[Rfam]
RNA: Small nucleolar RNA SNORA79
Organism: Melipona bicolor
RNA sequence: AGACAUCUGUUCCUUUAAUAUGAUAUUUUAUAUCAUGUUAGAUUUCAGAAUGUCUUAGAAUAAAUGAAUUGCUUCACCCAGAAUUGUAAUAUAUUUUACACUGUCUGGUUUUUGCGGGUUCAAACAAAU
Numbered sequence: 001a002g003a004c005a006u007c008u009g010u011u012c013c014u015u016u017a018a019u020a021u022g023a024u025a026u027u028u029u030a031u032a033u034c035a036u037g038u039u040a041g042a043u044u045u046c047a048g049a050a051u052g053u054c055u056u057a058g059a060a061u062a063a064a065u066g067a068a069u070u071g072c073u074u075c076a077c078c079c080a081g082a083a084u085u086g087u088a089a090u091a092u093a094u095u096u097u098a099c100a101c102u103g104u105c106u107g108g109u110u111u112u113u114g115c116g117g118g119u120u121c122a123a124a125c126a127a128a129u
Stems, first nucleotide, its partner, number of pairs: 001055006008048001014042005020036004066121005078108005085100005